[Rfam]
RNA sequence: UGGUGACAUGAGGCUCCUUGGCUGUCACUCUGUCCUGCCCAUUCAGGCCCACGGGGCACAGGCUGAGUCCCAGUAAAGUCUGUGAGGCCUGACCC
Numbered sequence: 001u002g003g004u005g006a007c008a009u010g011a012g013g014c015u016c017c018u019u020g021g022c023u024g025u026c027a028c029u030c031u032g033u034c035c036u037g038c039c040c041a042u043u044c045a046g047g048c049c050c051a052c053g054g055g056g057c058a059c060a061g062g063c064u065g066a067g068u069c070c071c072a073g074u075a076a077a078g079u080c081u082g083u084g085a086g087g088c089c090u091g092a093c094c095c
Stems, first nucleotide, its partner, number of pairs: 002094003005088001007087001009085001011081005021074004027068004032063003037057004
A member of the RNA family "mir-8813 microRNA precursor family" from Canis lupus, 95 nucleotides long. Its family is annotated with RISC complex and miRNA-mediated post-transcriptional gene silencing in the Gene Ontology. The organism belongs to Canis lupus, within Eukaryota.